Notes: The family of this 92-nucleotide sequence from Candidatus Pelagibacter sp. HTCC7211 is "rpsL sRNA". NCBI's taxonomy places the organism under Bacteria, Pseudomonadati, Alphaproteobacteria, Candidatus Pelagibacteraceae, Candidatus Pelagibacter. The family's RNA type in Rfam is small RNA. It is one of the family's seed sequences.
[Rfam]
Nucleotides: 092
Stems, first nucleotide, its partner, number of pairs: 011087004015082002019079002021076004025045006049072004
Number, partner (000 for none) and nucleotide at each position: 001000u002000u003000g004000g005000c006000g007000a008000u009000a010000u011087u012086u013085u014084u015082g016081g017000u018000u019079g020078g021076a022075a023074u024073g025045u026044a027043g028042u029041a030040c031000c032000u033000g034000c035000u036000a037000a038000u039000a040030g041029u042028a043027c044026u045025a046000a047000a048000c049072g050071c051070u052069g053000c054000c055000a056000c057000a058000a059000a060000a061000u062000a063000a064000c065000c066000u067000g068000u069052c070051a071050g072049u073024u074023a075022u076021u077000u078020u079019c080000a081016c082015c083000u084014a085013a086012a087011a088000a089000u090000a091000a092000a